mir-965 microRNA precursor family: a 75-nucleotide RNA sequence from Allacma fusca. NCBI's taxonomy places the organism under Eukaryota, Opisthokonta, Panarthropoda, Allotriocarida, Allacma. On this family, see Huang et al., Bioorg Khim 2012: "The regulation of silkworm fibroin L chain production by miRNA-965 and miRNA-1926 in insect cells". Rfam links the family to the GO terms miRNA-mediated post-transcriptional gene silencing and RISC complex.
[Rfam]
RNA sequence: GUCUUGCGGGGGAAAGUCGUAGCGAUUAUGCUGCCGAUUCCAGUGUCAUAAGCGUAUGGCUUUUCCCCUUGAGAU
Number, nucleotide and partner (000 for none) at each position: 001g000002u000003c073004u072005u071006g070007c000008g000009g067010g066011g065012g000013a063014a062015a000016g000017u059018c058019g057020u056021a055022g000023c000024g000025a000026u051027u050028a049029u048030g047031c000032u000033g000034c000035c000036g000037a000038u000039u000040c000041c000042a000043g000044u000045g000046u000047c030048a029049u028050a027051a026052g000053c000054g000055u021056a020057u019058g018059g017060c000061u000062u014063u013064u000065c011066c010067c009068c000069u000070u006071g005072a004073g003074a000075u000